[Rfam]
Shown here is a 66-nucleotide sequence from Octodon degus, a member of the family "Selenocysteine insertion sequence 1". The organism belongs to Octodon, within Eukaryota. Rfam classes the family as a cis-regulatory element. Rfam's curators write: The incorporation of selenocysteine into a protein sequence is directed by an in-frame UGA codon (usually a stop codon) within the coding region of the mRNA. Selenoprotein mRNAs contain a conserved secondary structure in the 3' UTR that is required for the distinction of UGA stop from UGA selenocysteine. The selenocysteine insertion sequence (SECIS) is around 60 nt in length and adopts a hairpin structure which is sufficiently well-defined and conserved to act as a computational screen for selenoprotein genes. Pairs were carried over by alignment from the consensus structure, which is taken from published work.
Nucleotides: 066
Base pairs, nucleotide, nucleotide: 001066002065003064004063005062015052016051017049018048019047020046021045022044023043024042030039031038032037
Number, partner (000 for none) and nucleotide at each position: 001066a002065u003064u004063g005062c006000a007000u008000u009000a010000a011000u012000g013000a014000g015052g016051g017049c018048u019047a020046c021045a022044c023043a024042g025000c026000a027000a028000a029000c030039c031038u032037u033000u034000c035000c036000a037032a038031g039030g040000a041000u042024u043023u044022g045021u046020g047019u048018a049017g050000a051016u052015c053000u054000g055000a056000u057000a058000u059000u060000u061000g062005g063004c064003a065002a066001u